[Rfam]
Rhodo-rpoB RNA: a 93-nucleotide RNA sequence from Paenirhodobacter hankyongi.
The organism belongs to Paenirhodobacter, within Bacteria.
Nucleotides: 093
Base pairs, nucleotide, nucleotide: 001043002042003041004040005039010031011030012029013028014027015026016025017024066093067092068091069090070087071086072085073084074083
Number, partner (000 for none) and nucleotide at each position: 001043g002042g003041u004040u005039c006000g007000g008000g009000a010031g011030c012029c013028u014027u015026c016025c017024g018000g019000u020000g021000g022000g023000a024017c025016g026015g027014a028013a029012g030011g031010c032000a033000g034000g035000u036000a037000u038000g039005g040004a041003a042002c043001c044000g045000c046000c047000c048000c049000c050000c051000u052000u053000g054000a055000u056000c057000g058000c059000c060000a061000c062000g063000c064000g065000c066093c067092g068091c069090g070087c071086a072085c073084c074083g075000g076000g077000c078000c079000c080000c081000g082000a083074c084073g085072g086071u087070g088000u089000g090069u091068g092067c093066g